A member of the RNA family "MIR5565 microRNA precursor family" from Miscanthus lutarioriparius, 107 nucleotides long. Its family is annotated with miRNA-mediated post-transcriptional gene silencing and RISC complex in the Gene Ontology. Rfam 15.1 lists 3,346 matches to the family in 5 species. Lineage of the source: Eukaryota > Viridiplantae > commelinids > Poaceae > Miscanthus. A search with the family's covariance model found it, with a score of 82 bits.
[Rfam]
RNA sequence: GCACAUGUAUCCACCUCAAUCCAUGUGUGUUGGAGUGGGUUAGGGUGGAAUUUAGUUUAUUCCACACCAACUCACUCCAACACACAUCGAUAGAGGUUGAUACAUGG
Numbered sequence: 001g002c003a004c005a006u007g008u009a010u011c012c013a014c015c016u017c018a019a020u021c022c023a024u025g026u027g028u029g030u031u032g033g034a035g036u037g038g039g040u041u042a043g044g045g046u047g048g049a050a051u052u053u054a055g056u057u058u059a060u061u062c063c064a065c066a067c068c069a070a071c072u073c074a075c076u077c078c079a080a081c082a083c084a085c086a087u088c089g090a091u092a093g094a095g096g097u098u099g100a101u102a103c104a105u106g107g
Stems, first nucleotide, its partner, number of pairs: 004106008013097002016094002019091003023087010035075007043067001045065003